The family of this 75-nucleotide RNA sequence from Trichechus manatus is "Small nucleolar RNA ZL2". Lineage of the source: Eukaryota > Teleostomi > Dipnotetrapodomorpha > Afrotheria > Trichechus manatus. Rfam links the family to the GO terms nucleolus and RNA processing. It is annotated as a C/D-box small nucleolar RNA.
Nucleotides: 075
Stems, first nucleotide, its partner, number of pairs: 002074006011065005019056004024049001027046002032041001
Number, partner (000 for none) and nucleotide at each position: 001000c002074g003073c004072c005071u006070c007069a008000a009000a010000u011065g012064a013063u014062g015061g016000a017000a018000a019056a020055a021054u022053g023000a024049c025000c026000u027046g028045g029000g030000a031000g032041g033000a034000u035000c036000a037000u038000g039000a040000c041032u042000g043000a044000a045028c046027u047000g048000a049024g050000a051000c052000g053022u054021a055020u056019u057000c058000g059000u060000a061015c062014u063013g064012u065011c066000u067000g068000a069007u070006g071005g072004g073003g074002u075000c